[Rfam]
RNA: Bacterial RNase P class A
Organism: Roseovarius sp. THAF27
RNA sequence: GCGGAGGGCCGGACGGCCGCCUGCAAUGCGCUCUUGGCGGAUUGUUUGGGAGGAAAGUCCGGACUCCACAAGGCAACGGUGCCGGGUAACGCCCGGCCGGGGCAACCCGAGGGAAAGCGCCACAGAAAACAGACCGCUCUCGCAAUCCGCCAUGCGGAUCACGUGAGUCAGGGUGAAACGGUGGGGUAAGAGCCCACCGCGGGACGGGCAACCGGACCGGCAUGGCAAGCCCCACCGGGAGCAAUGCCGAAUAGGGAUCGCAUCCGGGCCGCCUUGGCCCCGCGAUCCGGGUUGGCAGCUAAAGCCUGCGGGCAACCGCAGGACCAGAUGAAUGGUCGUCCUACGACAGAAUCCGGCUUACAGGCCCUCCGCGCGC
Numbered sequence: 001g002c003g004g005a006g007g008g009c010c011g012g013a014c015g016g017c018c019g020c021c022u023g024c025a026a027u028g029c030g031c032u033c034u035u036g037g038c039g040g041a042u043u044g045u046u047u048g049g050g051a052g053g054a055a056a057g058u059c060c061g062g063a064c065u066c067c068a069c070a071a072g073g074c075a076a077c078g079g080u081g082c083c084g085g086g087u088a089a090c091g092c093c094c095g096g097c098c099g100g101g102g103c104a105a106c107c108c109g110a111g112g113g114a115a116a117g118c119g120c121c122a123c124a125g126a127a128a129a130c131a132g133a134c135c136g137c138u139c140u141c142g143c144a145a146u147c148c149g150c151c152a153u154g155c156g157g158a159u160c161a162c163g164u165g166a167g168u169c170a171g172g173g174u175g176a177a178a179c180g181g182u183g184g185g186g187u188a189a190g191a192g193c194c195c196a197c198c199g200c201g202g203g204a205c206g207g208g209c210a211a212c213c214g215g216a217c218c219g220g221c222a223u224g225g226c227a228a229g230c231c232c233c234a235c236c237g238g239g240a241g242c243a244a245u246g247c248c249g250a251a252u253a254g255g256g257a258u259c260g261c262a263u264c265c266g267g268g269c270c271g272c273c274u275u276g277g278c279c280c281c282g283c284g285a286u287c288c289g290g291g292u293u294g295g296c297a298g299c300u301a302a303a304g305c306c307u308g309c310g311g312g313c314a315a316c317c318g319c320a321g322g323a324c325c326a327g328a329u330g331a332a333u334g335g336u337c338g339u340c341c342u343a344c345g346a347c348a349g350a351a352u353c354c355g356g357c358u359u360a361c362a363g364g365c366c367c368u369c370c371g372c373g374c375g376c
Stems, first nucleotide, its partner, number of pairs: 001372010011361001012340007020050004025045001028042001055359003059356005064241004072275002077237005082096005097111001098109004112232002117230002119226003134172002136168004141163002180198006199221001200219003205214003245297004255288006266280005305322007